[Rfam]
This 119-nucleotide sequence from Isoptericola variabilis belongs to the Rfam family "SAM (S-adenosyl methionine) riboswitch aptamer". Pairs were carried over by alignment from the consensus structure, which is taken from published work. Rfam links the family to the GO terms S-adenosylmethionine metabolic process and regulation of gene expression.
RNA sequence: GGUCACGAGCGACCAGCGAUACGCCCUCCGCGUGCUGGUCCGGCAACCGCGCAACCUCGCGCACGGUGCCCCAGGAGGAAGACCGGUCCACCACGAACCCGUGGCGGAAAGAGCGAAGG
Numbered sequence: 001g002g003u004c005a006c007g008a009g010c011g012a013c014c015a016g017c018g019a020u021a022c023g024c025c026c027u028c029c030g031c032g033u034g035c036u037g038g039u040c041c042g043g044c045a046a047c048c049g050c051g052c053a054a055c056c057u058c059g060c061g062c063a064c065g066g067u068g069c070c071c072c073a074g075g076a077g078g079a080a081g082a083c084c085g086g087u088c089c090a091c092c093a094c095g096a097a098c099c100c101g102u103g104g105c106g107g108a109a110a111g112a113g114c115g116a117a118g119g
Stems, first nucleotide, its partner, number of pairs: 001084004009041001012039006022032002042070003047066003051060002087108003091104005
Dot-bracket structure: ((((....(..((((((....((.......)).)))))).)(((..(((.((......))...))).)))..........))))..(((.(((((....))))).)))...........